[Rfam]
RNA sequence: UUGCGCUACGGAGAUGGCAUUCCUCCUGCAGCUCAUCGCAAACCGCUGGAUUAGUUACGUAGCUGACUUAUCUGAUUGAGUCGCCUAAUUAAGCCAGCUAAUGAUGCCUACGCGUUC
Numbered sequence: 001u002u003g004c005g006c007u008a009c010g011g012a013g014a015u016g017g018c019a020u021u022c023c024u025c026c027u028g029c030a031g032c033u034c035a036u037c038g039c040a041a042a043c044c045g046c047u048g049g050a051u052u053a054g055u056u057a058c059g060u061a062g063c064u065g066a067c068u069u070a071u072c073u074g075a076u077u078g079a080g081u082c083g084c085c086u087a088a089u090u091a092a093g094c095c096a097g098c099u100a101a102u103g104a105u106g107c108c109u110a111c112g113c114g115u116u117c
Stems, first nucleotide, its partner, number of pairs: 010026004016108006045098004

Fluoride riboswitch aptamer (crcB RNA motif): a 117-nucleotide sequence from Burkholderia sp. Leaf177.
It scores 44 bits against the family's covariance model.
Taxonomically the source falls in Burkholderia (Bacteria, Betaproteobacteria, Burkholderiales, Burkholderiaceae).